[Rfam]
RNA sequence: GCUACGCCCGGACGAACCUCCCAUGUCGGCCGAUAGAUGACGGGUCGGUGGGAUCUUCGUCCGUUUGUAUC
Numbered sequence: 001g002c003u004a005c006g007c008c009c010g011g012a013c014g015a016a017c018c019u020c021c022c023a024u025g026u027c028g029g030c031c032g033a034u035a036g037a038u039g040a041c042g043g044g045u046c047g048g049u050g051g052g053a054u055c056u057u058c059g060u061c062c063g064u065u066u067g068u069a070u071c
Stems, first nucleotide, its partner, number of pairs: 003069004009063007019053005027047005
RNA: mir-278 microRNA precursor family